This 62-nucleotide sequence belongs to the Rfam family "Fluoride riboswitch aptamer (crcB RNA motif)". The family's consensus secondary structure is taken from published work. Its family is annotated with positive regulation of gene expression and response to fluoride in the Gene Ontology.
Nucleotides: 062
Stems, first nucleotide, its partner, number of pairs: 010025004016053006033043003
Number, partner (000 for none) and nucleotide at each position: 001000c002000a003000c004000g005000c006000u007000c008000a009000a010025a011024g012023g013022g014000a015000u016053g017052g018051a019050g020049u021048u022013c023012c024011c025010u026000u027000c028000c029000a030000a031000c032000c033043g034042c035041c036000a037000a038000a039000c040000c041035g042034g043033c044000u045000g046000a047000u048021g049020a050019c051018u052017c053016c054000u055000a056000c057000u058000u059000c060000g061000c062000c